[Rfam]
RNA sequence: UUUUUAGCACAAGUAUGUCCCAUGCAAUAUUUGGGAUACACUUAUGUUAAAC
Numbered sequence: 001u002u003u004u005u006a007g008c009a010c011a012a013g014u015a016u017g018u019c020c021c022a023u024g025c026a027a028u029a030u031u032u033g034g035g036a037u038a039c040a041c042u043u044a045u046g047u048u049a050a051a052c
Stems, first nucleotide, its partner, number of pairs: 006048004011043002014040001016038001018036004022031001

mir-1302 microRNA precursor family: a 52-nucleotide sequence from Vicugna pacos.